[Rfam]
RNA sequence: AUCGUAAUUUGGGGCGAUUGUCGGACUAGUCGCUUCUUGAAAUCAGCCCAAGUGACUAGACCGAACACUCGCGUCCUAAAACUCGAU
Numbered sequence: 001a002u003c004g005u006a007a008u009u010u011g012g013g014g015c016g017a018u019u020g021u022c023g024g025a026c027u028a029g030u031c032g033c034u035u036c037u038u039g040a041a042a043u044c045a046g047c048c049c050a051a052g053u054g055a056c057u058a059g060a061c062c063g064a065a066c067a068c069u070c071g072c073g074u075c076c077u078a079a080a081a082c083u084c085g086a087u
Base pairs, nucleotide, nucleotide: 011077012076013075014074015073016072019067020066021065022063023062024061027058028057029056030055031054033052034051
RNA: mir-286 microRNA precursor family